[Rfam]
RNA: c-di-GMP-I riboswitch aptamer
Organism: Desulfosporosinus metallidurans
RNA sequence: UUUUGAAAAUGGCAAACUUAGUGAAAACUAAGGACGCAAAGCUAUGGAUCGUACAGGUUGGCUGACGACCGCCAGGUUACUGAU
Numbered sequence: 001u002u003u004u005g006a007a008a009a010u011g012g013c014a015a016a017c018u019u020a021g022u023g024a025a026a027a028c029u030a031a032g033g034a035c036g037c038a039a040a041g042c043u044a045u046g047g048a049u050c051g052u053a054c055a056g057g058u059u060g061g062c063u064g065a066c067g068a069c070c071g072c073c074a075g076g077u078u079a080c081u082g083a084u
Stems, first nucleotide, its partner, number of pairs: 012037002017032006040078004045074003049068002055063002